[Rfam]
RNA: Nuclear RNase P
Organism: Hericium alpestre
Nucleotides: 576
Base pairs, nucleotide, nucleotide: 001576002575003574004573007570008569009568012509013508014507015506016505017504018503020070021069022068023067024066034058035057036056038055039054040053081560082559083558084557085556096272097271098270099269106120107119108118109117110116122138123137124135125134126133127132139268140267141266142265143264144263158254159253160252510548511547512546513545514544515543516542
Number, partner (000 for none) and nucleotide at each position: 001576a002575c003574a004573g005000c006000c007570c008569g009568a010000a011000a012509g013508c014507c015506g016505c017504g018503a019000u020070g021069c022068u023067c024066a025000u026000c027000c028000c029000a030000c031000a032000c033000a034058g035057a036056u037000u038055c039054g040053c041000c042000g043000u044000u045000u046000c047000c048000a049000a050000c051000a052000c053040g054039c055038g056036a057035u058034c059000a060000u061000c062000u063000u064000c065000a066024u067023g068022a069021g070020c071000g072000g073000g074000c075000u076000a077000a078000g079000g080000u081560c082559u083558g084557a085556g086000c087000a088000u089000c090000a091000u092000a093000g094000u095000c096272c097271c098270c099269c100000u101000c102000g103000a104000c105000a106120g107119g108118c109117u110116c111000u112000a113000g114000c115000a116110g117109a118108g119107c120106u121000c122138g123137u124135g125134c126133c127132c128000g129000a130000a131000c132127g133126g134125g135124c136000u137123a138122c139268g140267c141266g142265a143264c144263a145000u146000a147000c148000c149000a150000g151000c152000a153000a154000u155000g156000u157000g158254c159253g160252g161000g162000c163000g164000c165000c166000u167000g168000c169000g170000c171000u172000a173000c174000g175000c176000c177000a178000g179000u180000g181000a182000a183000c184000g185000a186000c187000c188000g189000c190000c191000c192000u193000u194000c195000g196000u197000g198000a199000u200000u201000g202000g203000c204000g205000g206000g207000g208000g209000g210000c211000g212000u213000c214000u215000c216000g217000g218000g219000a220000g221000g222000c223000a224000g225000g226000c227000g228000g229000g230000c231000g232000u233000u234000g235000c236000g237000g238000c239000c240000c241000a242000a243000c244000g245000u246000g247000c248000c249000g250000c251000g252160c253159c254158g255000a256000u257000u258000g259000g260000c261000a262000u263144u264143g265142u266141c267140g268139c269099g270098g271097g272096g273000a274000c275000c276000g277000g278000g279000u280000g281000c282000g283000c284000a285000u286000u287000c288000g289000u290000u291000c292000u293000c294000u295000c296000u297000c298000u299000c300000c301000g302000u303000g304000u305000c306000a307000c308000c309000c310000a311000c312000c313000c314000u315000g316000c317000u318000u319000c320000c321000a322000c323000c324000c325000g326000c327000u328000c329000u330000c331000g332000c333000g334000c335000u336000u337000u338000g339000c340000a341000g342000c343000g344000u345000u346000u347000g348000c349000u350000g351000c352000u353000g354000g355000a356000c357000g358000a359000c360000g361000g362000a363000c364000u365000c366000u367000g368000a369000g370000a371000u372000g373000c374000c375000c376000g377000c378000a379000u380000g381000g382000c383000g384000g385000a386000g387000g388000a389000g390000g391000c392000u393000g394000c395000g396000u397000u398000u399000a400000u401000g402000c403000g404000g405000a406000g407000c408000u409000g410000u411000c412000g413000a414000u415000u416000u417000c418000g419000c420000u421000a422000a423000u424000u425000g426000g427000c428000a429000c430000c431000g432000c433000u434000c435000c436000g437000g438000c439000g440000g441000c442000g443000u444000a445000u446000g447000a448000g449000g450000c451000a452000g453000g454000g455000g456000c457000a458000g459000g460000g461000g462000c463000a464000g465000g466000g467000u468000g469000g470000a471000g472000a473000u474000g475000c476000g477000g478000c479000g480000a481000g482000g483000u484000g485000c486000g487000c488000g489000c490000c491000c492000u493000u494000g495000a496000g497000u498000u499000c500000a501000c502000u503018u504017c505016g506015c507014g508013g509012c510548u511547c512546g513545u514544g515543c516542a517000g518000g519000u520000g521000g522000u523000c524000g525000g526000g527000c528000u529000c530000u531000c532000c533000g534000g535000g536000c537000c538000c539000g540000a541000c542516u543515g544514c545513a546512c547511g548510a549000a550000a551000c552000u553000c554000g555000a556085u557084u558083c559082a560081g561000a562000c563000u564000a565000c566000u567000c568009u569008u570007g571000g572000g573004c574003u575002g576001u